[Rfam]
RNA sequence: UGGACUCUGCGGUGUUCGUAUUAAUCCUUUUAAUUCAACCGACAAAGUAGAUACGGGACAUCUAGCCGUUGGCAGUGGAUAAAAAGCCUUCACUGAAAGGACUUUAGAAGCUGUCACCAAGACACCCACCUUAUUUUUAGGCGGGUAUGAAUUAAAAGGGGGACGGCAUUGUGGAGUUUUU
Numbered sequence: 001u002g003g004a005c006u007c008u009g010c011g012g013u014g015u016u017c018g019u020a021u022u023a024a025u026c027c028u029u030u031u032a033a034u035u036c037a038a039c040c041g042a043c044a045a046a047g048u049a050g051a052u053a054c055g056g057g058a059c060a061u062c063u064a065g066c067c068g069u070u071g072g073c074a075g076u077g078g079a080u081a082a083a084a085a086g087c088c089u090u091c092a093c094u095g096a097a098a099g100g101a102c103u104u105u106a107g108a109a110g111c112u113g114u115c116a117c118c119a120a121g122a123c124a125c126c127c128a129c130c131u132u133a134u135u136u137u138u139a140g141g142c143g144g145g146u147a148u149g150a151a152u153u154a155a156a157a158g159g160g161g162g163a164c165g166g167c168a169u170u171g172u173g174g175a176g177u178u179u180u181u
Stems, first nucleotide, its partner, number of pairs: 002179014017165003030155004035150003038146003055127003061122003065118001070116007082104002087100004
Shown here is a 181-nucleotide sequence, a member of the family "6S / SsrS RNA". About the family: E. coli 6S RNA was the first non coding RNA to be sequenced, but its function was unknown until recently. A search with the family's covariance model found it, with a score of 78 bits. Pairs were carried over by alignment from the consensus structure, which is taken from published work. A reference for the family is Wassarman and Storz (2000), "6S RNA regulates E. coli RNA polymerase activity", Cell. By type it is a non-coding RNA gene.